[Rfam]
RNA: L17 ribosomal protein downstream element
RNA sequence: AGAGUGUUAUGAUGAUGGGAUCAAUUUUAUUGGUUUCCAAGUCUAGCUCGAAACUUCUCCUGAUUUGAGUUUGCUCAUUCAGGAG
Numbered sequence: 001a002g003a004g005u006g007u008u009a010u011g012a013u014g015a016u017g018g019g020a021u022c023a024a025u026u027u028u029a030u031u032g033g034u035u036u037c038c039a040a041g042u043c044u045a046g047c048u049c050g051a052a053a054c055u056u057c058u059c060c061u062g063a064u065u066u067g068a069g070u071u072u073g074c075u076c077a078u079u080c081a082g083g084a085g
Base pairs, nucleotide, nucleotide: 002049003048004047005046011043012042013041017038018037019036020035022033057085058084059083060082061081062080063079065077